[Rfam]
RNA sequence: AACCUGUGAUGAAAACAUUCUGCCAAAUGACUUCUGUGAUUAUUACCAUACCGUUCCAUUUUAUUUCUGAGGUU
Numbered sequence: 001a002a003c004c005u006g007u008g009a010u011g012a013a014a015a016c017a018u019u020c021u022g023c024c025a026a027a028u029g030a031c032u033u034c035u036g037u038g039a040u041u042a043u044u045a046c047c048a049u050a051c052c053g054u055u056c057c058a059u060u061u062u063a064u065u066u067c068u069g070a071g072g073u074u
Stems, first nucleotide, its partner, number of pairs: 001074004
Dot-bracket structure: ((((..................................................................))))

The record is a 74-nucleotide sequence from Esox lucius, which matches "Small nucleolar RNA SNORD47" in Rfam. By type it is a C/D-box small nucleolar RNA. For this family Rfam cites "RNomics: an experimental approach that identifies 201 candidates for novel, small, non-messenger RNAs in mouse" (Huttenhofer et al., EMBO J, 2001). The match comes from Rfam's covariance-model search (70 bits). NCBI's taxonomy places the organism under Eukaryota, Bilateria, Clupeocephala, Esociformes, Esox.